[Rfam]
A member of the RNA family "FMN riboswitch aptamer (RFN element)" from Absicoccus porci, 126 nucleotides long. The family's consensus secondary structure is taken from published work. Rfam's curators write: The RFN element is a highly conserved domain that is found frequently in the 5'-untranslated regions of prokaryotic mRNAs that encode for flavin mononucleotide (FMN) biosynthesis and transport proteins. This element is a metabolite-dependent riboswitch that directly binds FMN in the absence of proteins. Rfam links the family to the GO term FMN binding.
RNA sequence: AGAUUUCUUCAGGGCGGGGUGUGAUUCCCCACCGGCGGUAUAGUCCGCGAGCGCAAGCAUGAACCGGUGUAAUUCUGGUACCGACGGUAUUUGUGAAAACAUGAGUCCGGAUGAGAGAAGAAUUUU
Numbered sequence: 001a002g003a004u005u006u007c008u009u010c011a012g013g014g015c016g017g018g019g020u021g022u023g024a025u026u027c028c029c030c031a032c033c034g035g036c037g038g039u040a041u042a043g044u045c046c047g048c049g050a051g052c053g054c055a056a057g058c059a060u061g062a063a064c065c066g067g068u069g070u071a072a073u074u075c076u077g078g079u080a081c082c083g084a085c086g087g088u089a090u091u092u093g094u095g096a097a098a099a100c101a102u103g104a105g106u107c108c109g110g111a112u113g114a115g116a117g118a119a120g121a122a123u124u125u126u
Stems, first nucleotide, its partner, number of pairs: 003124001005122006017029003033083002035048004043081002063079005085109003